[Rfam]
Rfam assigns this 53-nucleotide sequence from Salinarchaeum sp. Harcht-Bsk1 to the family "leuA-Halobacteria RNA".
RNA sequence: GACGUACGAGGAUAGAGGAAGUCGCCGCGAGGCGGCUGGACGCGAAAUUCGCC
Numbered sequence: 001g002a003c004g005u006a007c008g009a010g011g012a013u014a015g016a017g018g019a020a021g022u023c024g025c026c027g028c029g030a031g032g033c034g035g036c037u038g039g040a041c042g043c044g045a046a047a048u049u050c051g052c053c
Stems, first nucleotide, its partner, number of pairs: 020037007
Dot-bracket structure: ...................(((((((....)))))))................

The family's RNA type in Rfam is cis-regulatory element. The base pairs follow the family's consensus structure, which is taken from published work. The organism belongs to Salinarchaeum, within Archaea.